Notes
The record is a 106-nucleotide RNA from Liparis tanakae, which matches "mir-223 microRNA precursor family" in Rfam. Its family is annotated with RISC complex and miRNA-mediated post-transcriptional gene silencing in the Gene Ontology. The family's consensus secondary structure was predicted with RNAalifold. Lineage of the source: Eukaryota > Eumetazoa > Gnathostomata > Cottioidei > Liparis. The match comes from Rfam's covariance-model search (83 bits).
[Rfam]
RNA sequence: GUCGAGAGAUCCGGCCCCCCACUUAGUGUAUUUGACAUGCUGAGUUUGACACUCUGUAUCUCCCAGUGUCAGUUUGUCAAAUACCCUAAGUGAGGUGUCACUUGUC
Dot-bracket structure: ...................((((..(.((((((((((.(((......((((.(...........).))))))).)))))))))).)..))))..............